[Rfam]
RNA sequence: CACUCUGGAAAGCAGCCGGGAUGAAGGUCCCGGCUCACCGACGGAGUAAGCGGCGACGUUAAAAGCGUCACGUGAAUCUCUCAGGUUCAGCGACAGAGGG
Dot-bracket structure: (.(((((......((((((..........)))))).(((((..(((...((....................))....))))).))).......))))).)
Numbered sequence: 001c002a003c004u005c006u007g008g009a010a011a012g013c014a015g016c017c018g019g020g021a022u023g024a025a026g027g028u029c030c031c032g033g034c035u036c037a038c039c040g041a042c043g044g045a046g047u048a049a050g051c052g053g054c055g056a057c058g059u060u061a062a063a064a065g066c067g068u069c070a071c072g073u074g075a076a077u078c079u080c081u082c083a084g085g086u087u088c089a090g091c092g093a094c095a096g097a098g099g100g
Stems, first nucleotide, its partner, number of pairs: 001100001003098005014035006037086003040082002044080003050073002

Shown here is a 100-nucleotide RNA sequence from Agaricicola taiwanensis, a member of the family "Glycine riboswitch aptamer".
The match comes from Rfam's covariance-model search (46 bits).